[Rfam]
RNA sequence: GGAUCGAUGCCACGUCUACGGUAGCUCUAUGCUUUGACGGGCGAUGCUGUGAUUGGUCCAAGAACAAAAUUUUUUGCAUCUUGAUAGGAAUCUGAGGAUCUUAUUUUUUUAUUGAUCUACGAAGUCGUUUCGUGCGAUUACAUCU
Number, nucleotide and partner (000 for none) at each position: 001g000002g058003a057004u056005c055006g054007a053008u052009g050010c000011c000012a000013c046014g045015u044016c043017u000018a000019c000020g000021g038022u037023a000024g032025c031026u000027c000028u000029a000030u000031g025032c024033u000034u000035u000036g000037a022038c021039g000040g000041g000042c000043g016044a015045u014046g013047c000048u000049g000050u009051g000052a008053u007054u006055g005056g004057u003058c002059c000060a000061a000062g000063a000064a000065c000066a000067a000068a000069a000070u000071u000072u000073u000074u137075u136076g135077c134078a133079u000080c000081u000082u000083g000084a000085u000086a000087g126088g125089a000090a000091u000092c000093u121094g120095a000096g118097g117098a116099u115100c114101u000102u000103a000104u000105u000106u000107u000108u000109u000110u000111a000112u000113u000114g100115a099116u098117c097118u096119a000120c094121g093122a000123a000124g000125u088126c087127g000128u000129u000130u000131c000132g000133u078134g077135c076136g075137a074138u000139u000140a000141c000142a000143u000144c000145u000

The record is a 145-nucleotide sequence from Cannabis sativa, which matches "Small nucleolar RNA snoR2/U65" in Rfam.
Rfam classes the family as an H/ACA-box small nucleolar RNA.
The family is grouped with related families in Rfam's "SNORA65 clan".
Its family is annotated with nucleolus and RNA processing in the Gene Ontology.